[Rfam]
RNA sequence: UCCCUAGUGGUGUAGUGGCUAACAUCGCCGUCUUUCACACGGCAGCCCUGGGUUCGAUUCCCAGCUAGGGAG
Numbered sequence: 001u002c003c004c005u006a007g008u009g010g011u012g013u014a015g016u017g018g019c020u021a022a023c024a025u026c027g028c029c030g031u032c033u034u035u036c037a038c039a040c041g042g043c044a045g046c047c048c049u050g051g052g053u054u055c056g057a058u059u060c061c062c063a064g065c066u067a068g069g070g071a072g
Stems, first nucleotide, its partner, number of pairs: 001071007010025004027043005048064005

The record is a 72-nucleotide RNA sequence from Coccidioides immitis, which matches "tRNA" in Rfam. A search with the family's covariance model found it, with a score of 56 bits. By type it is a transfer RNA. The family's consensus secondary structure is taken from published work. The source organism's lineage runs through Eukaryota, Pezizomycotina, Eurotiomycetes, Onygenales and Coccidioides immitis.